RNA sequence: ACGAUGUUCCGCUGCAAUGAUACAAAAGGCAUUGACAUGAGCAUUGG
Numbered sequence: 001a002c003g004a005u006g007u008u009c010c011g012c013u014g015c016a017a018u019g020a021u022a023c024a025a026a027a028g029g030c031a032u033u034g035a036c037a038u039g040a041g042c043a044u045u046g047g
Stems, first nucleotide, its partner, number of pairs: 003045007013037002015034004
Ribosomal protein L19 leader: a 47-nucleotide RNA sequence from Bacillus solimangrovi.
Its family is annotated with regulation of gene expression in the Gene Ontology.
A search with the family's covariance model found it, with a score of 42 bits.
The family's RNA type in Rfam is cis-regulatory leader.
Taxonomically the source falls in Bacillus (Bacteria, Bacilli, Caryophanales, Bacillaceae).
This family is a putative r-protein leader autoregulatory structure found in B. subtilis and other low-GC Gram-positive bacteria. It is located in the 5' untranslated regions of mRNAs encoding ribosomal protein L19 (rplS).